[Rfam]
RNA: Small nucleolar RNA Z122
RNA sequence: UUUGGGAAAUGAUGCAAAUAUAUAUUUACAUGUUAUCAGAGGCAACAGCUCUGCUGAUUUGUUUUUUUGCAUGUCAGUCUGAUCCCAAC
Numbered sequence: 001u002u003u004g005g006g007a008a009a010u011g012a013u014g015c016a017a018a019u020a021u022a023u024a025u026u027u028a029c030a031u032g033u034u035a036u037c038a039g040a041g042g043c044a045a046c047a048g049c050u051c052u053g054c055u056g057a058u059u060u061g062u063u064u065u066u067u068u069g070c071a072u073g074u075c076a077g078u079c080u081g082a083u084c085c086c087a088a089c
Stems, first nucleotide, its partner, number of pairs: 002088006